Rfam assigns this 68-nucleotide RNA from Lysobacteraceae bacterium NML03-0222 to the family "int-alpA RNA". Rfam classes the family as a small RNA.
RNA sequence: CCCGCAUCUAGCCCGACGGGGCGAACGCGCCGGAACCCUGCGCCGCUGAUGCGGGAACCUUUCAGGGG
Numbered sequence: 001c002c003c004g005c006a007u008c009u010a011g012c013c014c015g016a017c018g019g020g021g022c023g024a025a026c027g028c029g030c031c032g033g034a035a036c037c038c039u040g041c042g043c044c045g046c047u048g049a050u051g052c053g054g055g056a057a058c059c060u061u062u063c064a065g066g067g068g
Base pairs, nucleotide, nucleotide: 001055002054003053004052005051006050007049008048011022012021013020014019028045029044031042032041036068037067038066039065
Acidobacteria (1 example), Planctomycetes (1 example), Proteobacteria. The family's consensus secondary structure is taken from published work. The family has 167 seed sequences and 577 matches in Rfam 15.1.